[Rfam]
RNA sequence: GCCCCUAUCGUCUAGUGGCCUAGGACGCUGGCCUUUCACGCCGGUAGCACGGGUUCGAAUCCCGUUGGGGGUA
Numbered sequence: 001g002c003c004c005c006u007a008u009c010g011u012c013u014a015g016u017g018g019c020c021u022a023g024g025a026c027g028c029u030g031g032c033c034u035u036u037c038a039c040g041c042c043g044g045u046a047g048c049a050c051g052g053g054u055u056c057g058a059a060u061c062c063c064g065u066u067g068g069g070g071g072u073a
Stems, first nucleotide, its partner, number of pairs: 001072007010026004028044005049065005

Shown here is a 73-nucleotide RNA sequence from Trueperella bernardiae, a member of the family "tRNA". The match comes from Rfam's covariance-model search (60 bits). It is annotated as a transfer RNA. Rfam links the family to the GO term triplet codon-amino acid adaptor activity.